[Rfam]
Record summary:
This 369-nucleotide part of an RNA from Holophaga foetida belongs to the Rfam family "Bacterial large subunit ribosomal RNA".
RNA sequence: GAAAAGACGGGUGAGAACCCCGUCCGCCGUAAGACUAAGGUUUCCAACGCAAGGUCAAUCCGCGUUGGGUUAGUCGGGCCCUAAGCCGAGGCCGAGAGGCGUAGGCGAUGGAAAGCUGGUUAAUAUUCCAGCACCAUGAUUAUCUCGUUUGUACGAUGCAGGGACGCAGGAAGGUAGGGACGCACGACUAUGGAAUGUGGUGUGCAAGCUUUCAAGGGUGUGAGCCAGGGAAGUCCGGUUCACGUUAAGCCCAAGAAUUCUGACGAAAAGUCCCUGAUCCUACACUGCCGAGAAAAGCUGCUAAGGAGAGGUAGUUGUGUCCGUACCGCAAACCGACACAGGUAGUCGAGGAGAGAAUCCUCAGGCGUU
Numbered sequence: 001g002a003a004a005a006g007a008c009g010g011g012u013g014a015g016a017a018c019c020c021c022g023u024c025c026g027c028c029g030u031a032a033g034a035c036u037a038a039g040g041u042u043u044c045c046a047a048c049g050c051a052a053g054g055u056c057a058a059u060c061c062g063c064g065u066u067g068g069g070u071u072a073g074u075c076g077g078g079c080c081c082u083a084a085g086c087c088g089a090g091g092c093c094g095a096g097a098g099g100c101g102u103a104g105g106c107g108a109u110g111g112a113a114a115g116c117u118g119g120u121u122a123a124u125a126u127u128c129c130a131g132c133a134c135c136a137u138g139a140u141u142a143u144c145u146c147g148u149u150u151g152u153a154c155g156a157u158g159c160a161g162g163g164a165c166g167c168a169g170g171a172a173g174g175u176a177g178g179g180a181c182g183c184a185c186g187a188c189u190a191u192g193g194a195a196u197g198u199g200g201u202g203u204g205c206a207a208g209c210u211u212u213c214a215a216g217g218g219u220g221u222g223a224g225c226c227a228g229g230g231a232a233g234u235c236c237g238g239u240u241c242a243c244g245u246u247a248a249g250c251c252c253a254a255g256a257a258u259u260c261u262g263a264c265g266a267a268a269a270g271u272c273c274c275u276g277a278u279c280c281u282a283c284a285c286u287g288c289c290g291a292g293a294a295a296a297g298c299u300g301c302u303a304a305g306g307a308g309a310g311g312u313a314g315u316u317g318u319g320u321c322c323g324u325a326c327c328g329c330a331a332a333c334c335g336a337c338a339c340a341g342g343u344a345g346u347c348g349a350g351g352a353g354a355g356a357a358u359c360c361u362c363a364g365g366c367g368u369u
Stems, first nucleotide, its partner, number of pairs: 006024006025367004033347004039327002044068006053061002075323004080111002085106003089102001091100003115132005135319011154305001158301004166288004172281003177274005182203004187198001204264001208259001210257002216252003220243007228236002333342002349361004
NCBI's taxonomy places the organism under Bacteria, Acidobacteriota, Holophagales, Holophagaceae, Holophaga. It is one of the family's seed sequences.